Annotation: The family of this 100-nucleotide RNA sequence from Hathewaya histolytica is "Purine riboswitch aptamer". Taxonomically the source falls in Hathewaya (Bacteria, Bacillati, Eubacteriales, Clostridiaceae). Pairs were carried over by alignment from the consensus structure, which is taken from published work. Rfam 15.1 lists 4,097 matches to the family in 1,411 species.
RNA sequence: AAAAUUACAGAAACAGACGCUUAUAUAAUACUGAUAAUAUGGAUCAGUAGUUUCUACCGAAUACCGUAAACAUUCGACUAUGGGCUUAUCUUCAAUUAUU
Numbered sequence: 001a002a003a004a005u006u007a008c009a010g011a012a013a014c015a016g017a018c019g020c021u022u023a024u025a026u027a028a029u030a031c032u033g034a035u036a037a038u039a040u041g042g043a044u045c046a047g048u049a050g051u052u053u054c055u056a057c058c059g060a061a062u063a064c065c066g067u068a069a070a071c072a073u074u075c076g077a078c079u080a081u082g083g084g085c086u087u088a089u090c091u092u093c094a095a096u097u098a099u100u
Base pairs, nucleotide, nucleotide: 019085020084021083022082023081024080025079029049030048031047032046033045034044035043058076059075060074061073062072